RNA: Glutamine riboswitch aptamer (glnA leader)
Organism: Synechococcales cyanobacterium K44_A2020_017
RNA sequence: UUCGUUCAUUCUCUUAGUCCUCACGGGUUCACCUCAGGCAAGAAGAGAACGGAAGUAGGGAGACAUCCCGAAGGAACGCGCC
Numbered sequence: 001u002u003c004g005u006u007c008a009u010u011c012u013c014u015u016a017g018u019c020c021u022c023a024c025g026g027g028u029u030c031a032c033c034u035c036a037g038g039c040a041a042g043a044a045g046a047g048a049a050c051g052g053a054a055g056u057a058g059g060g061a062g063a064c065a066u067c068c069c070g071a072a073g074g075a076a077c078g079c080g081c082c
Base pairs, nucleotide, nucleotide: 003078004077005076006075007074009049010048011047012046013045014044015043052079058069059068060067